Record summary:
This 80-nucleotide RNA from Vanessa tameamea belongs to the Rfam family "mir-750 microRNA precursor family". Its family is annotated with miRNA-mediated post-transcriptional gene silencing and RISC complex in the Gene Ontology. The match comes from Rfam's covariance-model search (93 bits). Lineage of the source: Eukaryota > Allotriocarida > Insecta > Panorpida > Vanessa.

[Rfam]
RNA sequence: UUCACGUCUGAGUUGGACAGGGGAUCUUGACAGUUUGAUACUGAAUGCUGCCAGAUCUAUCUUUCCAGCUCACGCGUGGA
Dot-bracket structure: (((((((.(((((((((.(((((((((.(.((((............))))).)))))).))).))))))))).)))))))